[Rfam]
RNA sequence: ACCCAAACCCAGGUCUGCUGACUCCUAGUCCAGUGCUUGUGAUGGCUGGUGGGCCCUGAACUAGGGGUCUGGAGGCCUGGGUUUGAAUAUC
Numbered sequence: 001a002c003c004c005a006a007a008c009c010c011a012g013g014u015c016u017g018c019u020g021a022c023u024c025c026u027a028g029u030c031c032a033g034u035g036c037u038u039g040u041g042a043u044g045g046c047u048g049g050u051g052g053g054c055c056c057u058g059a060a061c062u063a064g065g066g067g068u069c070u071g072g073a074g075g076c077c078u079g080g081g082u083u084u085g086a087a088u089a090u091c
Stems, first nucleotide, its partner, number of pairs: 008081006015074002018071001020069007028061002031058003035054004
Overview:
This 91-nucleotide sequence from Bos taurus belongs to the Rfam family "mir-345 microRNA precursor family". It is one of the family's seed sequences. The family's consensus secondary structure was predicted with RNAalifold. A reference for the family is Ahn et al. (2010), "MicroRNA transcriptome in the newborn mouse ovaries determined by massive parallel sequencing", Mol Hum Reprod. Gene Ontology terms of the family: RISC complex and miRNA-mediated post-transcriptional gene silencing.